Rfam assigns this 141-nucleotide RNA from Providencia stuartii to the family "Molybdenum/Tungsten riboswitch aptamer (Moco RNA motif)". Lineage of the source: Bacteria > Pseudomonadati > Pseudomonadota > Gammaproteobacteria > Providencia. The family has 160 seed sequences and 1,248 matches in Rfam 15.1. The match comes from Rfam's covariance-model search (93 bits).
[Rfam]
RNA sequence: AAAUAAGUAUAACUCCUAGCCUUUGUGUCUAAGUUCGUUAUGGCGAAUAUGAUCCUCUGGCCGUGGCCUUUGAGCCACCAGGGUGCAAGAUAGAAAUGUCUGCAUCUCCCGUAUUUGGAAAGGUGUCAUUAUGCAGCAGCU
Numbered sequence: 001a002a003a004u005a006a007g008u009a010u011a012a013c014u015c016c017u018a019g020c021c022u023u024u025g026u027g028u029c030u031a032a033g034u035u036c037g038u039u040a041u042g043g044c045g046a047a048u049a050u051g052a053u054c055c056u057c058u059g060g061c062c063g064u065g066g067c068c069u070u071u072g073a074g075c076c077a078c079c080a081g082g083g084u085g086c087a088a089g090a091u092a093g094a095a096a097u098g099u100c101u102g103c104a105u106c107u108c109c110c111g112u113a114u115u116u117g118g119a120a121a122g123g124u125g126u127c128a129u130u131a132u133g134c135a136g137c138a139g140c141u
Stems, first nucleotide, its partner, number of pairs: 006132001012126002015123002019061003025055001027053003033048006063078005081107006088101005108118002